[Rfam]
RNA sequence: UAUUAGGUUGGUGCAAAAGUUAUUGCGGUUUUUGCUAUUAAAACUGUUUGCAAAAACCGCAAUUACUUUUGCACCAACCUAAUA
Numbered sequence: 001u002a003u004u005a006g007g008u009u010g011g012u013g014c015a016a017a018a019g020u021u022a023u024u025g026c027g028g029u030u031u032u033u034g035c036u037a038u039u040a041a042a043a044c045u046g047u048u049u050g051c052a053a054a055a056a057c058c059g060c061a062a063u064u065a066c067u068u069u070u071g072c073a074c075c076a077a078c079c080u081a082a083u084a
Stems, first nucleotide, its partner, number of pairs: 001084020022063014037048001039046002
A member of the RNA family "mir-548 microRNA precursor family" from Rhinopithecus roxellana, 84 nucleotides long. The base pairs follow the family's consensus structure, which was predicted with WAR. Rfam links the family to the GO terms miRNA-mediated post-transcriptional gene silencing and RISC complex. Lineage of the source: Eukaryota > Sarcopterygii > Tetrapoda > Amniota > Rhinopithecus. A search with the family's covariance model found it, with a score of 91 bits. For this family Rfam cites "Ultra-high throughput sequencing-based small RNA discovery and discrete statistical biomarker analysis in a collection of cervical tumours and matched controls" (Witten et al., BMC Biol, 2010).